Rfam assigns this 78-nucleotide RNA from Candidatus Electrothrix aarhusensis to the family "c-di-GMP-I riboswitch aptamer".
The organism belongs to Candidatus Electrothrix, within Bacteria.
Rfam describes the family as follows. GEMM was predicted in a large-scale screen for bacterial structured RNA regulatory elements.
It scores 53 bits against the family's covariance model.
The base pairs follow the family's consensus structure, which is taken from published work.

RNA sequence: AGUUGAUAAAGCCACAGCCGUCGUGAGACGGUGUCGGAAAGCCACGGAUCUCCCUGAAGAGACCGCCGGGUUACCUAC
Numbered sequence: 001a002g003u004u005g006a007u008a009a010a011g012c013c014a015c016a017g018c019c020g021u022c023g024u025g026a027g028a029c030g031g032u033g034u035c036g037g038a039a040a041g042c043c044a045c046g047g048a049u050c051u052c053c054c055u056g057a058a059g060a061g062a063c064c065g066c067c068g069g070g071u072u073a074c075c076u077a078c
Base pairs, nucleotide, nucleotide: 012037013036017032018031019030020029021028022027040072041071042070043069045068046067047066049062050061051060052059